Shown here is a 137-nucleotide RNA from Merops nubicus, a member of the family "Small nucleolar RNA SNORA61". Its family is annotated with RNA processing and nucleolus in the Gene Ontology. The family has 25 seed sequences and 881 matches in Rfam 15.1. Taxonomically the source falls in Merops (Eukaryota, Eumetazoa, Chordata, Sarcopterygii).
[Rfam]
RNA sequence: UCCCUCCAAAUCCCUUUCCCAUGAGAUCUGAACACCGAUCUUGUGGUCGAAAAAGGAGGAAGACUAAAACUCAGACUGGUCUUGGGGCUCUGUGCUGGUGCUGUCCUGCUCUGAGAGGGACCAGUUAGAAGACAAGC
Number, nucleotide and partner (000 for none) at each position: 001u000002c000003c059004c058005u057006c056007c055008a000009a000010a000011u000012c000013c000014c000015u000016u000017u000018c000019c046020c045021a044022u043023g000024a000025g040026a039027u038028c037029u000030g000031a000032a000033c000034a000035c000036c000037g028038a027039u026040c025041u000042u000043g022044u021045g020046g019047u000048c000049g000050a000051a000052a000053a000054a000055g007056g006057a005058g004059g003060a000061a000062g000063a000064c000065u000066a000067a000068a000069a000070c000071u000072c000073a000074g000075a000076c124077u123078g122079g121080u120081c119082u118083u000084g000085g000086g000087g000088c000089u000090c000091u000092g000093u000094g000095c000096u000097g000098g000099u000100g000101c000102u000103g000104u000105c000106c000107u000108g000109c000110u000111c000112u000113g000114a000115g000116a000117g000118g082119g081120a080121c079122c078123a077124g076125u000126u000127a000128g000129a000130a000131g000132a000133c000134a000135a000136g000137c000